[Rfam]
RNA sequence: UCUGAAAAAGCCAAACCUCAAGUAAUUGAGGGACGGAAAGCCGCGGAUCCUUACAACGCAAGGACAGCCGGGUUGCCUGGG
Numbered sequence: 001u002c003u004g005a006a007a008a009a010g011c012c013a014a015a016c017c018u019c020a021a022g023u024a025a026u027u028g029a030g031g032g033a034c035g036g037a038a039a040g041c042c043g044c045g046g047a048u049c050c051u052u053a054c055a056a057c058g059c060a061a062g063g064a065c066a067g068c069c070g071g072g073u074u075g076c077c078u079g080g081g
Stems, first nucleotide, its partner, number of pairs: 001081001004077001011036002016031006034067001039074004044070003048064004

The record is an 81-nucleotide RNA from delta proteobacterium NaphS2, which matches "c-di-GMP-I-GGC riboswitch aptamer" in Rfam. Its Rfam clan is "c-di-GMP_I riboswitch clan". NCBI's taxonomy places the organism under Bacteria, delta/epsilon subdivisions, Deltaproteobacteria.